[Rfam]
RNA sequence: CAGGGCUGGGGAAGGGCUGCUGGGCAGUGGGGCCAACAGGCCCUGCCUCGUACUAGCCAGCCUCACCCGUGCCCAAGAUCAACCCCCUGGCAGACUCCAUGCUGGGGUCCAUCCUGUGCAGUAACAGGUGUGAGCAUUCAUGCAGCCUUUUGAUGGUCAUGUAUGAUACUGCAUACAACA
Numbered sequence: 001c002a003g004g005g006c007u008g009g010g011g012a013a014g015g016g017c018u019g020c021u022g023g024g025c026a027g028u029g030g031g032g033c034c035a036a037c038a039g040g041c042c043c044u045g046c047c048u049c050g051u052a053c054u055a056g057c058c059a060g061c062c063u064c065a066c067c068c069g070u071g072c073c074c075a076a077g078a079u080c081a082a083c084c085c086c087c088u089g090g091c092a093g094a095c096u097c098c099a100u101g102c103u104g105g106g107g108u109c110c111a112u113c114c115u116g117u118g119c120a121g122u123a124a125c126a127g128g129u130g131u132g133a134g135c136a137u138u139c140a141u142g143c144a145g146c147c148u149u150u151u152g153a154u155g156g157u158c159a160u161g162u163a164u165g166a167u168a169c170u171g172c173a174u175a176c177a178a179c180a
Stems, first nucleotide, its partner, number of pairs: 003074004008068003015062004019057004024053001027046004032041003086107003089103004115175009125165002131159003135155004142149001

Source information
Small Cajal body specific RNA 16: a 180-nucleotide sequence from Dryobates pubescens. It scores 127 bits against the family's covariance model. The base pairs follow the family's consensus structure, which was predicted with RNAfold. About the family: scaRNAs are a specific class of small nuclear RNAs which localise to the Cajal bodies and guide the modification of RNA polymerase II transcribed spliceosomal RNAs U1, U2, U4, U5 and U12. ACA47 belongs to the H/ACA box class of guide RNAs as it has the predicted hairpin-hinge-hairpin-tail structure, the conserved H/ACA-box motifs and is found associated with GAR1. ACA47 is predicted to guide the pseudouridylation of residue U5 of the U1 spliceosomal snRNA. The organism belongs to Dryobates, within Eukaryota. By type it is a small Cajal body RNA.